[Rfam]
RNA sequence: AGCAGCACCUCGGGGGGCCUUUUAUGGCUGAGACUGCGCAAGCUGACCCGUCGAACCUGAACCGGUUAAGACCGGCGGAGGGAAGGUUUAGCACAUCCGC
Numbered sequence: 001a002g003c004a005g006c007a008c009c010u011c012g013g014g015g016g017g018c019c020u021u022u023u024a025u026g027g028c029u030g031a032g033a034c035u036g037c038g039c040a041a042g043c044u045g046a047c048c049c050g051u052c053g054a055a056c057c058u059g060a061a062c063c064g065g066u067u068a069a070g071a072c073c074g075g076c077g078g079a080g081g082g083a084a085g086g087u088u089u090a091g092c093a094c095a096u097c098c099g100c
Stems, first nucleotide, its partner, number of pairs: 007087004011050004016044001017028003036043002056081003062075004